[Rfam]
RNA sequence: AAAAACUAAAUACUAUUAUUUCUAAUCAUCAUUUGGUUUCCUCCUCUACCUCGGUUAGUUUCGCCGGGGUUUUU
Numbered sequence: 001a002a003a004a005a006c007u008a009a010a011u012a013c014u015a016u017u018a019u020u021u022c023u024a025a026u027c028a029u030c031a032u033u034u035g036g037u038u039u040c041c042u043c044c045u046c047u048a049c050c051u052c053g054g055u056u057a058g059u060u061u062c063g064c065c066g067g068g069g070u071u072u073u074u
Stems, first nucleotide, its partner, number of pairs: 048070008